The family of this 157-nucleotide sequence from Clostridiales bacterium CHKCI001 is "Clostridiales-1 RNA".
[Rfam]
RNA sequence: UAUAAAAGUGUCAUCAAUGAUCAGACAGAAGAUUUAUACGCUGUACUGGAUGGGCAUUCGACGACCUCACCUGUAUGAGCAAGUAAGGCAUUUGUCUGGAUUGCAAAUACGGGUGGCGACGUCGAGAGUGCAUAGCACGAAGACAUCGGCUUUUAUA
Numbered sequence: 001u002a003u004a005a006a007a008g009u010g011u012c013a014u015c016a017a018u019g020a021u022c023a024g025a026c027a028g029a030a031g032a033u034u035u036a037u038a039c040g041c042u043g044u045a046c047u048g049g050a051u052g053g054g055c056a057u058u059c060g061a062c063g064a065c066c067u068c069a070c071c072u073g074u075a076u077g078a079g080c081a082a083g084u085a086a087g088g089c090a091u092u093u094g095u096c097u098g099g100a101u102u103g104c105a106a107a108u109a110c111g112g113g114u115g116g117c118g119a120c121g122u123c124g125a126g127a128g129u130g131c132a133u134a135g136c137a138c139g140a141a142g143a144c145a146u147c148g149g150c151u152u153u154u155a156u157a
Stems, first nucleotide, its partner, number of pairs: 001157006010065003016058004021053003026048003030044001031041001069114008079104004086097004117148003121144003128138004
The family's RNA type in Rfam is small RNA. The family's consensus secondary structure is taken from published work.